[Rfam]
RNA: Fluoride riboswitch aptamer (crcB RNA motif)
RNA sequence: GCAGCUUGCGGUGAUGAGGCUCACCGGAGACCCAAACCGCCCAUCAGGGCUGAUAGCCUCUGUCGUUUC
Numbered sequence: 001g002c003a004g005c006u007u008g009c010g011g012u013g014a015u016g017a018g019g020c021u022c023a024c025c026g027g028a029g030a031c032c033c034a035a036a037c038c039g040c041c042c043a044u045c046a047g048g049g050c051u052g053a054u055a056g057c058c059u060c061u062g063u064c065g066u067u068u069c
Base pairs, nucleotide, nucleotide: 010025011024012023013022016060017059018058019057020056021055039050040049041048042047
Dot-bracket structure: .........[[[[..((((((]]]].............((((....))))....)))))).........